[Rfam]
RNA sequence: AUAUACACUGAGUGGCCAGAUGGUGAUGAUCUCUGAAUGCAUAAUAAUCUGGCCACUCAGUGUGUAC
Dot-bracket structure: ...((((((((((((((.(((.((.(((...........))).)).))).))))))))))))))...
Numbered sequence: 001a002u003a004u005a006c007a008c009u010g011a012g013u014g015g016c017c018a019g020a021u022g023g024u025g026a027u028g029a030u031c032u033c034u035g036a037a038u039g040c041a042u043a044a045u046a047a048u049c050u051g052g053c054c055a056c057u058c059a060g061u062g063u064g065u066a067c
Stems, first nucleotide, its partner, number of pairs: 004064014019049003023045002026042003
Notes: Shown here is a 67-nucleotide RNA from Cnephaeus nilssonii, a member of the family "mir-9256 microRNA precursor family". The base pairs follow the family's consensus structure, which was predicted with RNAalifold. The source organism's lineage runs through Eukaryota, Deuterostomia, Laurasiatheria, Chiroptera and Cnephaeus. Rfam 15.1 lists 31,772 matches to the family in 5 species.